Notes
The family of this 37-nucleotide RNA sequence from Kouleothrix aurantiaca is "CRISPR RNA direct repeat element". Pairs were carried over by alignment from the consensus structure, which was predicted with WAR. Its family is annotated with defense response in the Gene Ontology. It scores 45 bits against the family's covariance model.
RNA sequence: AUUCAAGCAAAUGCCCCGCUAUGAAGGGGUUUGAAAC
Numbered sequence: 001a002u003u004c005a006a007g008c009a010a011a012u013g014c015c016c017c018g019c020u021a022u023g024a025a026g027g028g029g030u031u032u033g034a035a036a037c
Stems, first nucleotide, its partner, number of pairs: 012033002014029004